[Rfam]
RNA sequence: CUUCUGCUGUGAUGAUUUCUGAAAAAAAUUCACAUGUCAGACUUCAAAGAUUUUUAAAUAUAUCCAUGAGAAGAAAUUUCAUGUUUUGUGAGCAGAAG
Number, nucleotide and partner (000 for none) at each position: 001c098002u097003u096004c095005u094006g093007c092008u000009g000010u000011g000012a000013u000014g000015a000016u000017u000018u000019c000020u000021g000022a000023a000024a000025a000026a000027a000028a000029u000030u000031c000032a000033c000034a000035u000036g000037u000038c000039a000040g000041a000042c000043u000044u000045c000046a000047a000048a000049g064050a063051u062052u000053u000054u000055u000056a000057a000058a000059u000060a000061u000062a051063u050064c049065c000066a000067u000068g000069a000070g000071a000072a000073g000074a000075a000076a000077u000078u000079u000080c000081a000082u000083g000084u000085u000086u000087u000088g000089u000090g000091a000092g007093c006094a005095g004096a003097a002098g001

The record is a 98-nucleotide sequence from Olea europaea, which matches "Small nucleolar RNA R64/Z200 family" in Rfam. For this family Rfam cites "Purified box C/D snoRNPs are able to reproduce site-specific 2'-O-methylation of target RNA in vitro" (Galardi et al., Mol Cell Biol, 2002). The family's consensus secondary structure was predicted with PFOLD.